Rfam assigns this 132-nucleotide sequence from Gopherus evgoodei to the family "Small nucleolar RNA SNORA69". The family's RNA type in Rfam is H/ACA-box small nucleolar RNA. The family has 16 seed sequences and 808 matches in Rfam 15.1. Rfam describes the family as follows. U69 is a member of the H/ACA class of small nucleolar RNAs (snoRNAs) which act as guides in the the modification of uridines to pseudouridines. Rfam links the family to the GO terms RNA processing and nucleolus. NCBI's taxonomy places the organism under Eukaryota, Eumetazoa, Tetrapoda, Sauropsida, Gopherus.
RNA sequence: AAAGCAGGCUGCAAUUACAGUGCUUCAUUUUGUGGGAGUACUGCCAUUUUCCUGCUGAGAGUAACUCUGUUAAUAUUGCCUUUGAUUUCACCUAUGCAUUGGUGAAACCGCUAAUCAUUAACAUGUACAAGU
Numbered sequence: 001a002a003a004g005c006a007g008g009c010u011g012c013a014a015u016u017a018c019a020g021u022g023c024u025u026c027a028u029u030u031u032g033u034g035g036g037a038g039u040a041c042u043g044c045c046a047u048u049u050u051c052c053u054g055c056u057g058a059g060a061g062u063a064a065c066u067c068u069g070u071u072a073a074u075a076u077u078g079c080c081u082u083u084g085a086u087u088u089c090a091c092c093u094a095u096g097c098a099u100u101g102g103u104g105a106a107a108c109c110g111c112u113a114a115u116c117a118u119u120a121a122c123a124u125g126u127a128c129a130a131g132u
Base pairs, nucleotide, nucleotide: 003056004055005054006053007052008051018043019042020041021040022039023038024037025036026035066125068123069122070121071120072119073118074117083110084109086107087106088105089104090103091102092101094099